[Rfam]
RNA sequence: UUCUCCUAGUGUUCACUGUUGGCCUGUAUGUUUAUUGACUCAUAAGGCACGCGGUGAAUGCCAAGAGCA
Numbered sequence: 001u002u003c004u005c006c007u008a009g010u011g012u013u014c015a016c017u018g019u020u021g022g023c024c025u026g027u028a029u030g031u032u033u034a035u036u037g038a039c040u041c042a043u044a045a046g047g048c049a050c051g052c053g054g055u056g057a058a059u060g061c062c063a064a065g066a067g068c069a
Stems, first nucleotide, its partner, number of pairs: 003067003009061008018052002023047003027044004
A member of the RNA family "mir-124 microRNA precursor family" from Tenebrio molitor, 69 nucleotides long. NCBI's taxonomy places the organism under Eukaryota, Protostomia, Mandibulata, Neoptera, Tenebrio. A search with the family's covariance model found it, with a score of 64 bits.